A member of the RNA family "Glycine riboswitch aptamer" from Microbacterium sp. Root166, 124 nucleotides long. Lineage of the source: Bacteria > Bacillati > Micrococcales > Microbacteriaceae > Microbacterium. This family represents the bacterial glycine riboswitch.

RNA sequence: CCGACUCUGGAAAGUGGUUGCGAGCGCACGCCCGCAGCCCGCCGAAGGUGAAAGUCGCAGCAUCCGCUCUCUUCGGAGAAGGACGCCGCGGCGAAACUCUCAGGCCCAUGACAGAGGGGGAGUU
Numbered sequence: 001c002c003g004a005c006u007c008u009g010g011a012a013a014g015u016g017g018u019u020g021c022g023a024g025c026g027c028a029c030g031c032c033c034g035c036a037g038c039c040c041g042c043c044g045a046a047g048g049u050g051a052a053a054g055u056c057g058c059a060g061c062a063u064c065c066g067c068u069c070u071c072u073u074c075g076g077a078g079a080a081g082g083a084c085g086c087c088g089c090g091g092c093g094a095a096a097c098u099c100u101c102a103g104g105c106c107c108a109u110g111a112c113a114g115a116g117g118g119g120g121a122g123u124u
Base pairs, nucleotide, nucleotide: 002119005116006115007114008113009112016039017038018037019036020035021034022033041105042104043103044101045100048099050097054092055091056090057089058088